[Rfam]
RNA sequence: GGGCACCUACGGGGGCCUUGAUACCAUAGGCGGGAUCACCCUGAUGGGCCUCGUCGUCUAGCAAACGGAAGACAGACA
Numbered sequence: 001g002g003g004c005a006c007c008u009a010c011g012g013g014g015g016c017c018u019u020g021a022u023a024c025c026a027u028a029g030g031c032g033g034g035a036u037c038a039c040c041c042u043g044a045u046g047g048g049c050c051u052c053g054u055c056g057u058c059u060a061g062c063a064a065a066c067g068g069a070a071g072a073c074a075g076a077c078a
Base pairs, nucleotide, nucleotide: 001018002017003016004015006014007013008012029055030054031053032052033051034050

The family of this 78-nucleotide RNA from Roseobacter cerasinus is "L2-Alphaproteobacteria ribosomal protein leader". Pairs were carried over by alignment from the consensus structure, which is taken from published work. By type it is a cis-regulatory leader. A search with the family's covariance model found it, with a score of 57 bits.